[Rfam]
This 179-nucleotide sequence from Aedoeadaptatus coxii belongs to the Rfam family "6S / SsrS RNA". The organism belongs to Aedoeadaptatus, within Bacteria. A reference for the family is Wassarman and Storz (2000), "6S RNA regulates E. coli RNA polymerase activity", Cell. A search with the family's covariance model found it, with a score of 77 bits. The family's RNA type in Rfam is non-coding RNA gene.
RNA sequence: AUUUUCCUGCCCGGUUCGAUUACUUCUGUUAAUUCAACCGACAAAUCAGACACGGGAAAUCGUGUUUAGUUACCUAUAACAAGCCUCCACUGAGUGGAAGUUAGAAGUAGUUAGCAGAUUACCCACCUUAUAUUAAGGGCGGGUCUGAAUUAUAUGAAGUCCGGCCGGGCGGGAUUCCA
Numbered sequence: 001a002u003u004u005u006c007c008u009g010c011c012c013g014g015u016u017c018g019a020u021u022a023c024u025u026c027u028g029u030u031a032a033u034u035c036a037a038c039c040g041a042c043a044a045a046u047c048a049g050a051c052a053c054g055g056g057a058a059a060u061c062g063u064g065u066u067u068a069g070u071u072a073c074c075u076a077u078a079a080c081a082a083g084c085c086u087c088c089a090c091u092g093a094g095u096g097g098a099a100g101u102u103a104g105a106a107g108u109a110g111u112u113a114g115c116a117g118a119u120u121a122c123c124c125a126c127c128u129u130a131u132a133u134u135a136a137g138g139g140c141g142g143g144u145c146u147g148a149a150u151u152a153u154a155u156g157a158a159g160u161c162c163g164g165c166c167g168g169g170c171g172g173g174a175u176u177c178c179a
Stems, first nucleotide, its partner, number of pairs: 005174011017163002030152007037144003054124003058120004065114001067113007079101002084097002087094001